[Rfam]
RNA sequence: ACAAACGAGGCAGGGAUCGAUGAAUUUCUGCCCAUUCGCGGUCAAGUCUUGGGAGGAUCAGGUCGCCGGCGCGCUAAAUCGCUGCCACCGAGAAAUCGGGUCGAUCACGCGGGACUUCAAAAAACAAGGCUUUGGCCUUGUUUUUUUUU
Numbered sequence: 001a002c003a004a005a006c007g008a009g010g011c012a013g014g015g016a017u018c019g020a021u022g023a024a025u026u027u028c029u030g031c032c033c034a035u036u037c038g039c040g041g042u043c044a045a046g047u048c049u050u051g052g053g054a055g056g057a058u059c060a061g062g063u064c065g066c067c068g069g070c071g072c073g074c075u076a077a078a079u080c081g082c083u084g085c086c087a088c089c090g091a092g093a094a095a096u097c098g099g100g101u102c103g104a105u106c107a108c109g110c111g112g113g114a115c116u117u118c119a120a121a122a123a124a125c126a127a128g129g130c131u132u133u134g135g136c137c138u139u140g141u142u143u144u145u146u147u148u149u
Base pairs, nucleotide, nucleotide: 003149004148005147011030012029013028014027015026016025037111038110039109040108046058047057048056049055061106062105063104064103065102068086069085070084071082072081073080088099089098090097123142124141125140126139127138128137129136130135